[Rfam]
RNA sequence: UGGACACGUAAGUUUUCUUUCAGUUUCCUCUCUCUGUGGGGAAAACUGUACAAGUGUCCUAUAGCAAAACAGAAGGUAUCUGUUCAACUCUGGUGAGUUAAUGGGGUUGGAUCGUUCCACUUCUGACAUGU
Numbered sequence: 001u002g003g004a005c006a007c008g009u010a011a012g013u014u015u016u017c018u019u020u021c022a023g024u025u026u027c028c029u030c031u032c033u034c035u036g037u038g039g040g041g042a043a044a045a046c047u048g049u050a051c052a053a054g055u056g057u058c059c060u061a062u063a064g065c066a067a068a069a070c071a072g073a074a075g076g077u078a079u080c081u082g083u084u085c086a087a088c089u090c091u092g093g094u095g096a097g098u099u100a101a102u103g104g105g106g107u108u109g110g111a112u113c114g115u116u117c118c119a120c121u122u123c124u125g126a127c128a129u130g131u
Base pairs, nucleotide, nucleotide: 002059003058004057005056006055007054009052022047023046024045025044026042027041028040029039030038070125071124072123073122074121075120089105090104091103092102
Small Cajal body specific RNA 24: a 131-nucleotide sequence from Nothoprocta perdicaria. scaRNAs are a specific class of small nuclear RNAs which localise to the Cajal bodies and guide the modification of RNA polymerase II transcribed spliceosomal RNAs U1, U2, U4, U5 and U12. ACA12 belongs to the H/ACA box class of guide RNAs as it has the predicted hairpin-hinge-hairpin-tail structure,the conserved H/ACA-box motifs and is found associated with GAR1. Gene Ontology terms of the family: nucleolus, Cajal body and RNA processing. The base pairs follow the family's consensus structure, which was predicted with RNAfold. The family's RNA type in Rfam is small Cajal body RNA.